[Rfam]
RNA sequence: UUUUUCUUGUCGGAGUGCUAGUGUUUUUUACUGAGGUGAAAAACAUAAGCUGAGACCGUUAAUUCGGGAUCCGUUGAACCUGAUCGGGCUAGUACCCGCGAAGGAAACAAGCGUAAUGUUAUU
Numbered sequence: 001u002u003u004u005u006c007u008u009g010u011c012g013g014a015g016u017g018c019u020a021g022u023g024u025u026u027u028u029u030a031c032u033g034a035g036g037u038g039a040a041a042a043a044c045a046u047a048a049g050c051u052g053a054g055a056c057c058g059u060u061a062a063u064u065c066g067g068g069a070u071c072c073g074u075u076g077a078a079c080c081u082g083a084u085c086g087g088g089c090u091a092g093u094a095c096c097c098g099c100g101a102a103g104g105a106a107a108c109a110a111g112c113g114u115a116a117u118g119u120u121a122u123u
Base pairs, nucleotide, nucleotide: 006111007110008109009108010107011073012072013071014070016067017050018049019048021046022045023044024043025042026041027040028039029038030037057066058065079104080103081102085098086097087096088095
Rfam assigns this 123-nucleotide RNA from Paraglaciecola psychrophila to the family "TPP riboswitch aptamer (THI element)". About the family: Vitamin B(1) in its active form thiamin pyrophosphate (TPP) is an essential coenzyme that is synthesised by coupling of pyrimidine and thiazole moieties in bacteria. Taxonomically the source falls in Paraglaciecola psychrophila (Bacteria, Pseudomonadota, Gammaproteobacteria, Paraglaciecola). A search with the family's covariance model found it, with a score of 67 bits.